[Rfam]
RNA: tRNA
RNA sequence: GCUCGCGUGGCCCAAUGGAUACGGCGCUGCCCUCCUAAGGCAGAGAUUGCGGGUUCAAGUCCCGUCGUGAGUA
Numbered sequence: 001g002c003u004c005g006c007g008u009g010g011c012c013c014a015a016u017g018g019a020u021a022c023g024g025c026g027c028u029g030c031c032c033u034c035c036u037a038a039g040g041c042a043g044a045g046a047u048u049g050c051g052g053g054u055u056c057a058a059g060u061c062c063c064g065u066c067g068u069g070a071g072u073a
Stems, first nucleotide, its partner, number of pairs: 001072007010025003027043005049065005